[Rfam]
The family of this 37-nucleotide RNA sequence from Imhoffiella purpurea is "CRISPR RNA direct repeat element".
The family's consensus secondary structure was predicted with WAR.
It scores 46 bits against the family's covariance model.
RNA sequence: GCAUCGCCCGGCCAGUAGGUCGGGCGUGGAUUGAAAC
Numbered sequence: 001g002c003a004u005c006g007c008c009c010g011g012c013c014a015g016u017a018g019g020u021c022g023g024g025c026g027u028g029g030a031u032u033g034a035a036a037c
Stems, first nucleotide, its partner, number of pairs: 005026009